A member of the RNA family "Bacterial RNase P class A" from Fontimonas thermophila, 384 nucleotides long. A search with the family's covariance model found it, with a score of 298 bits. Gene Ontology terms of the family: ribonuclease P activity, tRNA processing and dimeric ribonuclease P complex. Pairs were carried over by alignment from the consensus structure, which is taken from published work. The organism belongs to Fontimonas, within Bacteria. By type it is a ribozyme.

RNA sequence: GGAGCCGGCCGGACAACCGCUGCUGCUGCGUGCAGGAGAGGAAAGUCCGGGCUCCACAGGGCGAGGUGCCAGGUAACGCCUGGGCGGCGUGAGCCGACGGAAAGUGCAACAGAGAGCAGACCGCCGAUGGCCGCAGCAUUGCGGAUCAGGCAAGGGUGAAACGGUGCGGUAAGAGCGCACCGCGAGUCCGGCAACGGACCGGCACGGCAAACCCCACCUGGAGCAAGACCAAAUAGGGAAGGUGUGCGCGCAAGCGCACGACACGUGGCCCGCGUGCCUUCCGGGUAGGUCGCUGGAGCGCGGCGGCGACGCCGCGCCUAGAGGAAUGGUUGUCGGGGCGCGCAAGCGCUCGCACAGAACCCGGCUUAUAGGCCGGCUCCCCAU
Numbered sequence: 001g002g003a004g005c006c007g008g009c010c011g012g013a014c015a016a017c018c019g020c021u022g023c024u025g026c027u028g029c030g031u032g033c034a035g036g037a038g039a040g041g042a043a044a045g046u047c048c049g050g051g052c053u054c055c056a057c058a059g060g061g062c063g064a065g066g067u068g069c070c071a072g073g074u075a076a077c078g079c080c081u082g083g084g085c086g087g088c089g090u091g092a093g094c095c096g097a098c099g100g101a102a103a104g105u106g107c108a109a110c111a112g113a114g115a116g117c118a119g120a121c122c123g124c125c126g127a128u129g130g131c132c133g134c135a136g137c138a139u140u141g142c143g144g145a146u147c148a149g150g151c152a153a154g155g156g157u158g159a160a161a162c163g164g165u166g167c168g169g170u171a172a173g174a175g176c177g178c179a180c181c182g183c184g185a186g187u188c189c190g191g192c193a194a195c196g197g198a199c200c201g202g203c204a205c206g207g208c209a210a211a212c213c214c215c216a217c218c219u220g221g222a223g224c225a226a227g228a229c230c231a232a233a234u235a236g237g238g239a240a241g242g243u244g245u246g247c248g249c250g251c252a253a254g255c256g257c258a259c260g261a262c263a264c265g266u267g268g269c270c271c272g273c274g275u276g277c278c279u280u281c282c283g284g285g286u287a288g289g290u291c292g293c294u295g296g297a298g299c300g301c302g303g304c305g306g307c308g309a310c311g312c313c314g315c316g317c318c319u320a321g322a323g324g325a326a327u328g329g330u331u332g333u334c335g336g337g338g339c340g341c342g343c344a345a346g347c348g349c350u351c352g353c354a355c356a357g358a359a360c361c362c363g364g365c366u367u368a369u370a371g372g373c374c375g376g377c378u379c380c381c382c383a384u
Base pairs, nucleotide, nucleotide: 001380002379003378004377005376006375007374008373009372010371011369012334013333014332015331016330017329018328020038021037023035024034025033026032043367044366045365047364048363049362050361051360052223053222054221055220059271060270061269062268064219065218066217067216068215069083070082071081072080073079084098085096086095087094088093099214100213104212105211106208107207121155122154123151124150125149128148129147130146132144163181164180165179166178167177168176182203183201184200186199187198188197189196190195227291228290229289230288237282238281239280240279241278242277262276263275264274265273266272298317299316300315301314302313303312304311305310